[Rfam]
RNA: Group II catalytic intron D1-D4-4
Organism: Rhodopila globiformis
RNA sequence: UUGCGGGUGAAAGUCCCGCCCGGGCAAUGGUCGGUUGGCCCGGUAGCUGGCAGGCGGUGCGGUUGGGCAAUUGGCCGUAUCGAAGCCCUGCGACAAAGGCCGCUUCUGGCGGUUGAGCGACUCGAUGGGCCGUAACGUGA
Numbered sequence: 001u002u003g004c005g006g007g008u009g010a011a012a013g014u015c016c017c018g019c020c021c022g023g024g025c026a027a028u029g030g031u032c033g034g035u036u037g038g039c040c041c042g043g044u045a046g047c048u049g050g051c052a053g054g055c056g057g058u059g060c061g062g063u064u065g066g067g068c069a070a071u072u073g074g075c076c077g078u079a080u081c082g083a084a085g086c087c088c089u090g091c092g093a094c095a096a097a098g099g100c101c102g103c104u105u106c107u108g109g110c111g112g113u114u115g116a117g118c119g120a121c122u123c124g125a126u127g128g129g130c131c132g133u134a135a136c137g138u139g140a
Stems, first nucleotide, its partner, number of pairs: 020043005050091005055082006064073001066071001098114006117133003